Rfam assigns this 115-nucleotide RNA from Peribacillus muralis to the family "SAM riboswitch aptamer (S box leader)".
It scores 85 bits against the family's covariance model.
The SAM riboswitch is found upstream of a number of genes which code for proteins involved in methionine or cysteine biosynthesis in Gram-positive bacteria. The SAM riboswitch acts at the level of transcription termination control. The predicted structure consists of a complex stem-loop region followed by a single stem loop terminator region.
[Rfam]
RNA sequence: CUCUUAUCAAGAGAGGUGGAGGGAUGUGCCCGAUGAAGCCCGGCAACCGACAAGGAGGUUUUUCCUUGGAAAGGUGCCAAUUCACACAAAGUGUAAACACUUUGGAAGAUGAGAG
Number, nucleotide and partner (000 for none) at each position: 001c115002u114003c113004u112005u111006a110007u109008c108009a000010a000011g000012a000013g041014a000015g040016g039017u038018g000019g000020a000021g031022g030023g029024a000025u086026g085027u084028g083029c023030c022031c021032g000033a000034u000035g000036a000037a000038g017039c016040c015041c013042g078043g077044c076045a075046a000047c074048c073049g000050a000051c068052a067053a066054g065055g064056a000057g000058g000059u000060u000061u000062u000063u000064c055065c054066u053067u052068g051069g000070a000071a000072a000073g048074g047075u045076g044077c043078c042079a000080a000081u000082u107083c028084a027085c026086a025087c104088a103089a102090a101091g100092u099093g000094u000095a000096a000097a000098c000099a092100c091101u090102u089103u088104g087105g000106a000107a082108g008109a007110u006111g005112a004113g003114a002115g001